[Rfam]
RNA sequence: GGCCUCUCAGUUCCGCUUAAUCACACAGGUCCAGUGUGUGCUUGGUGUCUUUUCUGGGAGGCAGAGGAAGGCUCUCCUAAUCACAACAGACCUGCCCAGAAGGGCCUCUCUAUUUCUAGGAGUAUGAUAGCU
Numbered sequence: 001g002g003c004c005u006c007u008c009a010g011u012u013c014c015g016c017u018u019a020a021u022c023a024c025a026c027a028g029g030u031c032c033a034g035u036g037u038g039u040g041c042u043u044g045g046u047g048u049c050u051u052u053u054c055u056g057g058g059a060g061g062c063a064g065a066g067g068a069a070g071g072c073u074c075u076c077c078u079a080a081u082c083a084c085a086a087c088a089g090a091c092c093u094g095c096c097c098a099g100a101a102g103g104g105c106c107u108c109u110c111u112a113u114u115u116c117u118a119g120g121a122g123u124a125u126g127a128u129a130g131c132u
Base pairs, nucleotide, nucleotide: 004064005063007061008060011058012057013056015054019043020042022040023039024038025037026036074122075121076120077119078118080117088111089110090109094105095104096103
Overview:
The record is a 132-nucleotide RNA sequence, which matches "Small nucleolar RNA SNORA64/SNORA10 family" in Rfam. For this family Rfam cites "Nucleolar localization signals of box H/ACA small nucleolar RNAs" (Narayanan et al., EMBO J, 1999). The family is grouped with related families in Rfam's "SNORA64 clan".